RNA sequence: CCGCCGCGACGUUCCGCCGCUGCCCCGCGAGGGGGAGAGGAAAGUCCGGGCAACGCAGAGCACCGCACUACCUAACGGGUAGAUGUCCGUGAGGGCACAGUCAAGGUAACAGAAAACGACCGCCCCGGUUCGGGGUAAGGGUGAAAAGGCGGGGUAAGAGCCCACCGCCCGCCGUGGCGACACGCGGGGCCGUACCACUUGCGGGUUGCAAGGCCAUGUAUACCGGCAUUCAAGGGUUGCUCGCCCGCUGCCGGGGGGUAGGCCGCUUGAGCCUGCGGGAGACCGCAGGCGUAGAUAAAUGGCGGAAACGUGCCGCGGUGCGAGCCGCGGCACGCACAGAACCCGGCUUACAGGCGCAUGCGGGUCU
Numbered sequence: 001c002c003g004c005c006g007c008g009a010c011g012u013u014c015c016g017c018c019g020c021u022g023c024c025c026c027g028c029g030a031g032g033g034g035g036a037g038a039g040g041a042a043a044g045u046c047c048g049g050g051c052a053a054c055g056c057a058g059a060g061c062a063c064c065g066c067a068c069u070a071c072c073u074a075a076c077g078g079g080u081a082g083a084u085g086u087c088c089g090u091g092a093g094g095g096c097a098c099a100g101u102c103a104a105g106g107u108a109a110c111a112g113a114a115a116a117c118g119a120c121c122g123c124c125c126c127g128g129u130u131c132g133g134g135g136u137a138a139g140g141g142u143g144a145a146a147a148g149g150c151g152g153g154g155u156a157a158g159a160g161c162c163c164a165c166c167g168c169c170c171g172c173c174g175u176g177g178c179g180a181c182a183c184g185c186g187g188g189g190c191c192g193u194a195c196c197a198c199u200u201g202c203g204g205g206u207u208g209c210a211a212g213g214c215c216a217u218g219u220a221u222a223c224c225g226g227c228a229u230u231c232a233a234g235g236g237u238u239g240c241u242c243g244c245c246c247g248c249u250g251c252c253g254g255g256g257g258g259u260a261g262g263c264c265g266c267u268u269g270a271g272c273c274u275g276c277g278g279g280a281g282a283c284c285g286c287a288g289g290c291g292u293a294g295a296u297a298a299a300u301g302g303c304g305g306a307a308a309c310g311u312g313c314c315g316c317g318g319u320g321c322g323a324g325c326c327g328c329g330g331c332a333c334g335c336a337c338a339g340a341a342c343c344c345g346g347c348u349u350a351c352a353g354g355c356g357c358a359u360g361c362g363g364g365u366c367u
Base pairs, nucleotide, nucleotide: 001363002362003361004360006357007356008355010353011351012307013306014305015304016303017302018301020037021036023034024033025032026031042349043348044347046346047345048344049343050342051208052207053206054205058242059241060240061239063204064203065202066201067200068082069081070080071079072078085096086095087094088093099199100198105196106195107194108193120140121139122136123135124134125133126132127131148166149165151163152162153161167190168188169187170186171185172184174183175182176181212264213263214262215261223254224253225252226251227250234246235245236244237243271290272289273288274287275286276285277284278283
RNA: Bacterial RNase P class A
Organism: Alistipes sp. CAG:157